The record is a 116-nucleotide sequence from Nannospalax galili, which matches "Small nucleolar RNA SNORA28" in Rfam. Clan: SNORA28 clan. Pairs were carried over by alignment from the consensus structure, which was predicted with RNAfold. About the family: ACA28 is a member of the H/ACA class of snoRNA that guide the sites of modification of uridines to pseudouridines. Rfam classes the family as an H/ACA-box small nucleolar RNA. Gene Ontology terms of the family: RNA processing and nucleolus. A reference for the family is Huttenhofer et al. (2001), "RNomics: an experimental approach that identifies 201 candidates for novel, small, non-messenger RNAs in mouse", EMBO J.
[Rfam]
RNA sequence: AAGCAACACUCUGUGGCAGAUGAACAAAACUGUCUGACACAAUUUGAGCAAGAAAGUCUAACCUAUUCUGGUGUUCUCUUCCCCAUGAGACACCUUGUUAUAUAGACUUAAACUAU
Numbered sequence: 001a002a003g004c005a006a007c008a009c010u011c012u013g014u015g016g017c018a019g020a021u022g023a024a025c026a027a028a029a030c031u032g033u034c035u036g037a038c039a040c041a042a043u044u045u046g047a048g049c050a051a052g053a054a055a056g057u058c059u060a061a062c063c064u065a066u067u068c069u070g071g072u073g074u075u076c077u078c079u080u081c082c083c084c085a086u087g088a089g090a091c092a093c094c095u096u097g098u099u100a101u102a103u104a105g106a107c108u109u110a111a112a113c114u115a116u
Stems, first nucleotide, its partner, number of pairs: 009048003012041004017036006054109007064102003069097003077090004